[Rfam]
RNA: STAXI RNA
RNA sequence: UGCCGUUUUUACGACCACCAAUGUUUCAGCGGUCUGUGAGAAACGCCUUCGGGUGGCUGCAAAAGAAUUCUCCCGUAGCCUGAAAGGGAGAGCAUAUUGAAUGUGGUACAUCUGCGCACCUUUGAAAGCAGAUAUCGCCAGUACAUGCGCACUAUGACGCGGCGAUGAAGGUUUCU
Numbered sequence: 001u002g003c004c005g006u007u008u009u010u011a012c013g014a015c016c017a018c019c020a021a022u023g024u025u026u027c028a029g030c031g032g033u034c035u036g037u038g039a040g041a042a043a044c045g046c047c048u049u050c051g052g053g054u055g056g057c058u059g060c061a062a063a064a065g066a067a068u069u070c071u072c073c074c075g076u077a078g079c080c081u082g083a084a085a086g087g088g089a090g091a092g093c094a095u096a097u098u099g100a101a102u103g104u105g106g107u108a109c110a111u112c113u114g115c116g117c118a119c120c121u122u123u124g125a126a127a128g129c130a131g132a133u134a135u136c137g138c139c140a141g142u143a144c145a146u147g148c149g150c151a152c153u154a155u156g157a158c159g160c161g162g163c164g165a166u167g168a169a170g171g172u173u174u175c176u
Base pairs, nucleotide, nucleotide: 002015004013005012006011023044024043025042026041027040029060030059031058032057033056034055045054046053047052069091070090071089072088073087075109076108077107079106080105092104093103094102111132112131113130114129115128118172119171120170121169122168137163138162139161